[Rfam]
RNA sequence: CACUUAUCCAGAGUGACUGAGGGACGGGCCCUAUGAAGUCACCGCAACCGUCGAGCCACGGCUCGAAGAGGUGCGAAUUCCCGCUCUCGGCCGUGCCGGGGGGAAGAUAAGCA
Number, nucleotide and partner (000 for none) at each position: 001c000002a000003c111004u110005u109006a108007u107008c106009c000010a000011g000012a000013g042014u041015g040016a039017c038018u000019g000020a000021g031022g030023g029024a000025c083026g082027g081028g080029c023030c022031c021032u000033a000034u000035g000036a000037a000038g017039u016040c015041a014042c013043c075044g074045c073046a072047a000048c071049c070050g000051u066052c065053g064054a000055g000056c000057c000058a000059c000060g000061g000062c000063u000064c053065g052066a051067a000068g000069a000070g049071g048072u046073g045074c044075g043076a000077a000078u000079u105080c028081c027082c026083g025084c102085u101086c100087u099088c098089g097090g000091c000092c000093g000094u000095g000096c000097c089098g088099g087100g086101g085102g084103g000104a000105a079106g008107a007108u006109a005110a004111g003112c000113a000
SAM riboswitch aptamer (S box leader): a 113-nucleotide RNA sequence from Algisphaera agarilytica.
The organism belongs to Algisphaera, within Bacteria.
A search with the family's covariance model found it, with a score of 80 bits.
Pairs were carried over by alignment from the consensus structure, which is taken from published work.